[Rfam]
The family of this 191-nucleotide RNA sequence from Hansenula ciferrii is "Small nucleolar RNA snR80". It scores 82 bits against the family's covariance model. On this family, see Schattner et al., Nucleic Acids Res 2004: "Genome-wide searching for pseudouridylation guide snoRNAs: analysis of the Saccharomyces cerevisiae genome". Rfam classes the family as an H/ACA-box small nucleolar RNA. Rfam 15.1 lists 447 matches to the family in 358 species.

Nucleotides: 191
Base pairs, nucleotide, nucleotide: 007078008077009076020065021064023062024061026059027058028057029056096186097185098184099183110171111170112169113168115166116165117164119163120162121161
Number, partner (000 for none) and nucleotide at each position: 001000u002000a003000c004000a005000g006000u007078u008077u009076g010000c011000c012000a013000a014000c015000a016000c017000u018000c019000u020065g021064g022000u023062g024061c025000c026059u027058a028057a029056u030000c031000a032000a033000a034000g035000u036000u037000a038000a039000a040000a041000a042000c043000a044000c045000u046000u047000u048000g049000g050000a051000u052000c053000u054000a055000u056029a057028u058027u059026a060000g061024g062023u063000u064021c065020c066000u067000a068000u069000u070000u071000u072000g073000g074000u075000g076009c077008a078007a079000a080000c081000a082000a083000g084000a085000u086000a087000a088000a089000u090000u091000u092000u093000u094000u095000u096186a097185g098184c099183u100000a101000a102000u103000u104000u105000a106000c107000u108000c109000a110171c111170c112169a113168a114000g115166a116165u117164a118000u119163a120162c121161u122000g123000a124000u125000u126000u127000u128000u129000a130000u131000a132000a133000u134000c135000a136000a137000u138000g139000c140000u141000u142000c143000g144000g145000u146000u147000u148000u149000g150000a151000u152000u153000c154000a155000c156000a157000a158000g159000a160000u161121g162120g163119u164117u165116a166115u167000a168113u169112u170111g171110g172000u173000c174000c175000a176000u177000u178000u179000c180000a181000a182000u183099a184098g185097c186096u187000u188000a189000c190000a191000u